[Rfam]
RNA sequence: UCUAGUUCCUCGAGUCUGACUCCCAGCCGUCCGCCCUGGCGCACCUUCCCCGGUGCCAGGUCGUGAGGGAUGGGGAUCAGGCCCCGGGAGCCCGAGACC
Numbered sequence: 001u002c003u004a005g006u007u008c009c010u011c012g013a014g015u016c017u018g019a020c021u022c023c024c025a026g027c028c029g030u031c032c033g034c035c036c037u038g039g040c041g042c043a044c045c046u047u048c049c050c051c052g053g054u055g056c057c058a059g060g061u062c063g064u065g066a067g068g069g070a071u072g073g074g075g076a077u078c079a080g081g082c083c084c085c086g087g088g089a090g091c092c093c094g095a096g097a098c099c
Stems, first nucleotide, its partner, number of pairs: 010086001012084001014082003018078002021075005027069002030066002032063002035060008
RNA: mraW RNA
Organism: Frigoribacterium sp. Leaf164